Rfam assigns this 111-nucleotide sequence to the family "EGFOA RNA". It is one of the family's seed sequences.
RNA sequence: GUCCCCCCAGAUGUUCCGUCCGUGUCCGCAUAAGCGGAGGCAGGCGAUGACGAGCGCAGGCGAAAGCGGCGCGGGUGGCAAAGCACGACCUGGGCACCCUUGAGUUAUCGC
Numbered sequence: 001g002u003c004c005c006c007c008c009a010g011a012u013g014u015u016c017c018g019u020c021c022g023u024g025u026c027c028g029c030a031u032a033a034g035c036g037g038a039g040g041c042a043g044g045c046g047a048u049g050a051c052g053a054g055c056g057c058a059g060g061c062g063a064a065a066g067c068g069g070c071g072c073g074g075g076u077g078g079c080a081a082a083g084c085a086c087g088a089c090c091u092g093g094g095c096a097c098c099c100u101u102g103a104g105u106u107a108u109c110g111c
Base pairs, nucleotide, nucleotide: 006094007093008092009091010090018089019088021087022086023085024084025038026037027036028035029034044111045110046109047108048107049106050105051104054072055071056070057069073099074098075097076096077095